Annotation:
Rfam assigns this 114-nucleotide RNA from Paspalum vaginatum to the family "mir-166 microRNA precursor family". This family represents the plant microRNA (miRNA) precursor mir-166. NCBI's taxonomy places the organism under Eukaryota, commelinids, Poaceae, Panicoideae, Paspalum. It scores 78 bits against the family's covariance model.

RNA sequence: UCUGAGUGGAAUGUUGUCUGGUUCAAGGUCUUGCCUGUGAUUCGAGGAUGAUUCUCGUGUAGUUUUCAUUCCUCUGAUCCGCGAAAUCUCGGACCAGGCUUCAUUCCCCUCAGA
Number, nucleotide and partner (000 for none) at each position: 001u114002c113003u112004g111005a110006g109007u000008g107009g106010a105011a104012u103013g102014u000015u000016g099017u098018c097019u096020g095021g094022u000023u000024c091025a000026a089027g000028g000029u000030c000031u000032u000033g000034c000035c000036u000037g000038u000039g000040a000041u000042u000043c000044g000045a000046g000047g000048a000049u000050g000051a000052u000053u000054c000055u000056c000057g000058u000059g000060u000061a000062g000063u000064u000065u000066u000067c000068a000069u000070u000071c000072c000073u000074c000075u000076g000077a000078u000079c000080c000081g000082c000083g000084a000085a000086a000087u000088c000089u026090c000091g024092g000093a000094c021095c020096a019097g018098g017099c016100u000101u000102c013103a012104u011105u010106c009107c008108c000109c006110u005111c004112a003113g002114a001